[Rfam]
RNA: PyrR binding site
RNA sequence: GGUACCUUUAAUUCAGUCCCGUGAGGCUGGCAAGGACAGCGGAAAUUAUGAGAAUCAUUGGGUGAGGUGUAUCCUGCCCGCUGGUUUUUCAUGAGGAAAAAGGCUUCUUGUCGGAAACGGCGAGAAGCUUUUUUCG
Numbered sequence: 001g002g003u004a005c006c007u008u009u010a011a012u013u014c015a016g017u018c019c020c021g022u023g024a025g026g027c028u029g030g031c032a033a034g035g036a037c038a039g040c041g042g043a044a045a046u047u048a049u050g051a052g053a054a055u056c057a058u059u060g061g062g063u064g065a066g067g068u069g070u071a072u073c074c075u076g077c078c079c080g081c082u083g084g085u086u087u088u089u090c091a092u093g094a095g096g097a098a099a100a101a102g103g104c105u106u107c108u109u110g111u112c113g114g115a116a117a118c119g120g121c122g123a124g125a126a127g128c129u130u131u132u133u134u135c136g
Base pairs, nucleotide, nucleotide: 005035006034007033008032013030014029015028016027017026018025054085055084056083057082059080060079061078062077063076064075100131101130102129103128104127105126106125107124108123109122110121111120112119113118